Notes
A member of the RNA family "mir-8517 microRNA precursor family" from Plutella xylostella, 108 nucleotides long. The family's consensus secondary structure was predicted with RNAalifold. A search with the family's covariance model found it, with a score of 105 bits.
[Rfam]
RNA sequence: UUACUGUACGCUAUAGCUAUAGAACUGUUUUGACACUCUCUGACAGAGAACAAUUUGUUCUUUGACAGAGAGUGACAGAACAGUUCAAUAGCUAAAGCGUCCAGUAAG
Numbered sequence: 001u002u003a004c005u006g007u008a009c010g011c012u013a014u015a016g017c018u019a020u021a022g023a024a025c026u027g028u029u030u031u032g033a034c035a036c037u038c039u040c041u042g043a044c045a046g047a048g049a050a051c052a053a054u055u056u057g058u059u060c061u062u063u064g065a066c067a068g069a070g071a072g073u074g075a076c077a078g079a080a081c082a083g084u085u086c087a088a089u090a091g092c093u094a095a096a097g098c099g100u101c102c103a104g105u106a107a108g
Stems, first nucleotide, its partner, number of pairs: 001107006011097002014094007022086007029069004034064002049059004